[Rfam]
RNA sequence: CUGUCACAUAAUAAGUUAUUAUGUUGCCACUUUGAGUUACGAUAAUUACUAUAUUAAUUUACGAGAUUAUAUGACUCUCUCAUAAGUGAUUUACUAUAACAUUAUGGUAAAUAUCAUCUUAAAUUAUAAUAACCUAUGUAUCGUAAAUGUCUAUUGUCAUUAUCGUAAAUUGGUACAAACAUUAUCGUAAAUCAAGGUGGCUAUAGAAUAAGUUAUUCUAUGGCUA
Numbered sequence: 001c002u003g004u005c006a007c008a009u010a011a012u013a014a015g016u017u018a019u020u021a022u023g024u025u026g027c028c029a030c031u032u033u034g035a036g037u038u039a040c041g042a043u044a045a046u047u048a049c050u051a052u053a054u055u056a057a058u059u060u061a062c063g064a065g066a067u068u069a070u071a072u073g074a075c076u077c078u079c080u081c082a083u084a085a086g087u088g089a090u091u092u093a094c095u096a097u098a099a100c101a102u103u104a105u106g107g108u109a110a111a112u113a114u115c116a117u118c119u120u121a122a123a124u125u126a127u128a129a130u131a132a133c134c135u136a137u138g139u140a141u142c143g144u145a146a147a148u149g150u151c152u153a154u155u156g157u158c159a160u161u162a163u164c165g166u167a168a169a170u171u172g173g174u175a176c177a178a179a180c181a182u183u184a185u186c187g188u189a190a191a192u193c194a195a196g197g198u199g200g201c202u203a204u205a206g207a208a209u210a211a212g213u214u215a216u217u218c219u220a221u222g223g224c225u226a
Stems, first nucleotide, its partner, number of pairs: 003224004008219001010217005016211005022205003026201008037190010050177001052175011065164003069160002072156003080146001082144002086141003091136001092131002095128005102121001107115001
Record summary:
The record is a 226-nucleotide RNA sequence from Miscanthus lutarioriparius, which matches "MIR6217 microRNA precursor family" in Rfam. A search with the family's covariance model found it, with a score of 110 bits. NCBI's taxonomy places the organism under Eukaryota, Streptophyta, Petrosaviidae, Andropogoneae, Miscanthus. Its family is annotated with RISC complex and miRNA-mediated post-transcriptional gene silencing in the Gene Ontology.